[Rfam]
RNA sequence: CCUUUGGGGAGUAGCCUCUUGUUCUAUCAAGAUAAACGUCAACAUAAUUGAAGCAAAAUCUUCAUGGCGUUUGUGACUCACACUAAUCCUACUAGUGAGUUU
Numbered sequence: 001c002c003u004u005u006g007g008g009g010a011g012u013a014g015c016c017u018c019u020u021g022u023u024c025u026a027u028c029a030a031g032a033u034a035a036a037c038g039u040c041a042a043c044a045u046a047a048u049u050g051a052a053g054c055a056a057a058a059u060c061u062u063c064a065u066g067g068c069g070u071u072u073g074u075g076a077c078u079c080a081c082a083c084u085a086a087u088c089c090u091a092c093u094a095g096u097g098a099g100u101u102u
Stems, first nucleotide, its partner, number of pairs: 019030003032074010049064005075101007
A member of the RNA family "Manganese Mn2+ riboswitch aptamer (yybP-ykoY)" from Photobacterium jeanii, 102 nucleotides long.
On this family, see Argaman et al., Curr Biol 2001: "Novel small RNA-encoding genes in the intergenic regions of Escherichia coli".
The pairing is the family consensus, mapped onto this sequence.
This RNA was originally discovered in E. coli during a large scale screen and was named SraF. The family was later found to exist upstream of related families of protein genes in many bacteria, including the the yybP and ykoK genes in B. subtilis. The specific functions of these proteins are unknown, but this structured RNA element may be involved in their genetic regulation as a riboswitch.